Shown here is a 91-nucleotide RNA from Stegodyphus mimosarum, a member of the family "Vault RNA". Taxonomically the source falls in Stegodyphus (Eukaryota, Ecdysozoa, Arthropoda, Araneae). The base pairs follow the family's consensus structure, which is taken from published work. It scores 52 bits against the family's covariance model.
RNA sequence: GCGCAGGCUUUGCUAAGUGGUUACUUCGCAAGUACAGAAUUUAAGUUUCUCGCAACUGCUACACAGACCACUGGCGCAAUCCUGCGUUUUU
Numbered sequence: 001g002c003g004c005a006g007g008c009u010u011u012g013c014u015a016a017g018u019g020g021u022u023a024c025u026u027c028g029c030a031a032g033u034a035c036a037g038a039a040u041u042u043a044a045g046u047u048u049c050u051c052g053c054a055a056c057u058g059c060u061a062c063a064c065a066g067a068c069c070a071c072u073g074g075c076g077c078a079a080u081c082c083u084g085c086g087u088u089u090u091u
Stems, first nucleotide, its partner, number of pairs: 002086006012075004017071004025054001027052002